RNA: mir-3661 microRNA precursor family
RNA sequence: CUCGCAGAGGCUCUUGACCUGGGACUCGGACAGCUGCUUGCACUCGUUCAGCUGCUCGAUCCACUGGUCCAGCUCCUUGGUGAA
Numbered sequence: 001c002u003c004g005c006a007g008a009g010g011c012u013c014u015u016g017a018c019c020u021g022g023g024a025c026u027c028g029g030a031c032a033g034c035u036g037c038u039u040g041c042a043c044u045c046g047u048u049c050a051g052c053u054g055c056u057c058g059a060u061c062c063a064c065u066g067g068u069c070c071a072g073c074u075c076c077u078u079g080g081u082g083a084a
Base pairs, nucleotide, nucleotide: 002083003082004081005080007078008077009076010075013072014071016069017068018067019066021064022062023061024060026059027058028057029056031054032053033052034051035050036049040047041046
Dot-bracket structure: .((((.((((..((.((((.((((.((((.((((((...((....)).)))))).))))))).).)))).))..)))).)))).